[Rfam]
RNA: Small nucleolar RNA SNORA13
RNA sequence: UGCCUUGAUGUGUUGCCCGUUCAUUGUCUCCAGGGUGAAUGAGGUGUCAAUCGAGGCAUGCAGAAACCUUGGAAGGAGUCCUCACUGAUUGCUUUCAUUAAGAUGAACUGCAAGAACACAC
Numbered sequence: 001u002g003c004c005u006u007g008a009u010g011u012g013u014u015g016c017c018c019g020u021u022c023a024u025u026g027u028c029u030c031c032a033g034g035g036u037g038a039a040u041g042a043g044g045u046g047u048c049a050a051u052c053g054a055g056g057c058a059u060g061c062a063g064a065a066a067c068c069u070u071g072g073a074a075g076g077a078g079u080c081c082u083c084a085c086u087g088a089u090u091g092c093u094u095u096c097a098u099u100a101a102g103a104u105g106a107a108c109u110g111c112a113a114g115a116a117c118a119c120a121c
Stems, first nucleotide, its partner, number of pairs: 002057006011049002014046004018041008068114004077109003081105001082103002086097002